[Rfam]
RNA sequence: AAAAUAAACUAGGGGUGCCUAACUUCAAGGCUGAGAUUAUACCCUUUAACCUGAACAGGAUAAUGCCUGCGUAGGAAAGUAAAGUGAGAAUCAA
Numbered sequence: 001a002a003a004a005u006a007a008a009c010u011a012g013g014g015g016u017g018c019c020u021a022a023c024u025u026c027a028a029g030g031c032u033g034a035g036a037u038u039a040u041a042c043c044c045u046u047u048a049a050c051c052u053g054a055a056c057a058g059g060a061u062a063a064u065g066c067c068u069g070c071g072u073a074g075g076a077a078a079g080u081a082a083a084g085u086g087a088g089a090a091u092c093a094a
Stems, first nucleotide, its partner, number of pairs: 008080003011045004016039001017031004050075004056069004
Notes
Shown here is a 94-nucleotide RNA sequence from Saccharicrinis fermentans, a member of the family "TPP riboswitch aptamer (THI element)". It scores 72 bits against the family's covariance model. Pairs were carried over by alignment from the consensus structure, which is taken from published work. Gene Ontology term of the family: thiamine pyrophosphate binding.